RNA sequence: AUUAUGCGGAUUUUUUGGGGGGUUAGGAAGGGCUCUGUACCAGACAUGACUCCCGGGUAUACCAUGUGGCUUGUGAAUUUCCUCCCCAUACCUGUUAU
Numbered sequence: 001a002u003u004a005u006g007c008g009g010a011u012u013u014u015u016u017g018g019g020g021g022g023u024u025a026g027g028a029a030g031g032g033c034u035c036u037g038u039a040c041c042a043g044a045c046a047u048g049a050c051u052c053c054c055g056g057g058u059a060u061a062c063c064a065u066g067u068g069g070c071u072u073g074u075g076a077a078u079u080u081c082c083u084c085c086c087c088a089u090a091c092c093u094g095u096u097a098u
Stems, first nucleotide, its partner, number of pairs: 004095001006093001008092002011090001018087004038077001040075001041073002044067004

Rfam assigns this 98-nucleotide RNA from Mus musculus to the family "NoRC associated RNA, pRNA". On this family, see Mayer et al., EMBO Rep 2008: "The structure of NoRC-associated RNA is crucial for targeting the chromatin remodelling complex NoRC to the nucleolus". Taxonomically the source falls in Mus (Eukaryota, Bilateria, Chordata, Euarchontoglires). The family's RNA type in Rfam is non-coding RNA gene.